[Rfam]
RNA sequence: AAGAGUUGGCGCGAGAGUUGCGGAUGGGUCAAAUCAACCCAUUCGAGGAAAGUCCGGACUCCCGAAAGACCAGACUUGCUGGGUAACGCCCAGUGCGCGCGAGCGUGAGGAUAGUGCCACAGAAAAAUACCGCCUCUAAUUUUAGAGGUAAGGGUGCAAAGGUUUUGCGGUAAGAGCGCACCAGCAGUAUCGUGAGGUACUGGCUCGGUAAACCCCGGUUGGGAGCAAGGUCGAAGGGGCAAAGGUUGGUCUUUUCCCUGUCCCGUUUUAGGUGUACCGCAUGAGGCGUUUGGUAACAAACGUCCUAGAUAGAUAACUCUCCACUGAACAGAAUCCGGCUUAUGUCCAACUCUUUUCU
Numbered sequence: 001a002a003g004a005g006u007u008g009g010c011g012c013g014a015g016a017g018u019u020g021c022g023g024a025u026g027g028g029u030c031a032a033a034u035c036a037a038c039c040c041a042u043u044c045g046a047g048g049a050a051a052g053u054c055c056g057g058a059c060u061c062c063c064g065a066a067a068g069a070c071c072a073g074a075c076u077u078g079c080u081g082g083g084u085a086a087c088g089c090c091c092a093g094u095g096c097g098c099g100c101g102a103g104c105g106u107g108a109g110g111a112u113a114g115u116g117c118c119a120c121a122g123a124a125a126a127a128u129a130c131c132g133c134c135u136c137u138a139a140u141u142u143u144a145g146a147g148g149u150a151a152g153g154g155u156g157c158a159a160a161g162g163u164u165u166u167g168c169g170g171u172a173a174g175a176g177c178g179c180a181c182c183a184g185c186a187g188u189a190u191c192g193u194g195a196g197g198u199a200c201u202g203g204c205u206c207g208g209u210a211a212a213c214c215c216c217g218g219u220u221g222g223g224a225g226c227a228a229g230g231u232c233g234a235a236g237g238g239g240c241a242a243a244g245g246u247u248g249g250u251c252u253u254u255u256c257c258c259u260g261u262c263c264c265g266u267u268u269u270a271g272g273u274g275u276a277c278c279g280c281a282u283g284a285g286g287c288g289u290u291u292g293g294u295a296a297c298a299a300a301c302g303u304c305c306u307a308g309a310u311a312g313a314u315a316a317c318u319c320u321c322c323a324c325u326g327a328a329c330a331g332a333a334u335c336c337g338g339c340u341u342a343u344g345u346c347c348a349a350c351u352c353u354u355u356u357c358u
Base pairs, nucleotide, nucleotide: 001354002353003352004351005350006349007348008347009346011343013321014320015319016318017317018316019315021045022044023043024042025041026040027039028038029037050341051340052339054338055337056336057335058334059225060224061223062222068257073220074219075218077217078216079093080092081091082090083089094108095106096105097104098103109215110214114213115212116209117208118207130153131152132149133148134147135146136145137144138143161182162181163180167179168178169177184204185202186201187200188199189198190197191196229278230277231276239269241267242266244264248263249262251260285304286303287302288301289300290299291298292297

A member of the RNA family "Bacterial RNase P class A" from Crocosphaera subtropica, 358 nucleotides long. Taxonomically the source falls in Crocosphaera subtropica (Bacteria, Cyanobacteriota, Oscillatoriophycideae, Aphanothecaceae). Its family is annotated with dimeric ribonuclease P complex, ribonuclease P activity and tRNA processing in the Gene Ontology. The family's consensus secondary structure is taken from published work.